RNA: LOOT RNA
RNA sequence: CGCCUAAACUCUAAUUUUUAAUAGGGCAUGGCGGAACAGAAUCCCAGUAUGGAAACGGAAGCUCUCCGUUCAGUCAUCCAUACUGGGUCAUUAUUCGAAAGGAUAGUGGGCGAAAGCC
Numbered sequence: 001c002g003c004c005u006a007a008a009c010u011c012u013a014a015u016u017u018u019u020a021a022u023a024g025g026g027c028a029u030g031g032c033g034g035a036a037c038a039g040a041a042u043c044c045c046a047g048u049a050u051g052g053a054a055a056c057g058g059a060a061g062c063u064c065u066c067c068g069u070u071c072a073g074u075c076a077u078c079c080a081u082a083c084u085g086g087g088u089c090a091u092u093a094u095u096c097g098a099a100a101g102g103a104u105a106g107u108g109g110g111c112g113a114a115a116g117c118c
Stems, first nucleotide, its partner, number of pairs: 001033004009026005043087011054070006089108008109118003